[Rfam]
RNA sequence: UGAGCAAGGAUUGGUUUAUUGGCAUUGUGCUACAGUCAAGGCACUCUUUUAUGCCAAACAUUCCUUGCAACACUGGCCCAGUAAAGAUGGGCAGUCUUUUAUUUCAUUCCAAACAUCAAAAACUCCGACAAAUCAUCUUCCCAAAGUGA
Number, nucleotide and partner (000 for none) at each position: 001u000002g000003a000004g068005c067006a066007a065008g064009g063010a062011u000012u000013g000014g044015u043016u000017u041018a000019u039020u000021g000022g000023c000024a000025u000026u000027g000028u000029g000030c000031u000032a000033c000034a000035g000036u000037c000038a000039a019040g000041g017042c000043a015044c014045u000046c000047u000048u000049u000050u000051a000052u000053g000054c000055c000056a000057a000058a000059c000060a000061u000062u010063c009064c008065u007066u006067g005068c004069a000070a000071c000072a000073c000074u000075g000076g000077c000078c000079c000080a000081g142082u000083a000084a139085a138086g137087a136088u135089g134090g133091g000092c000093a000094g129095u128096c127097u000098u000099u000100u000101a000102u000103u000104u000105c000106a000107u000108u000109c000110c000111a000112a000113a000114c000115a000116u000117c000118a000119a000120a000121a000122a000123c000124u000125c000126c000127g096128a095129c094130a000131a000132a000133u090134c089135a088136u087137c086138u085139u084140c000141c000142c081143a000144a000145a000146g000147u000148g000149a000
Rfam assigns this 149-nucleotide RNA from Vitis vinifera to the family "small nucleolar RNA snoR135".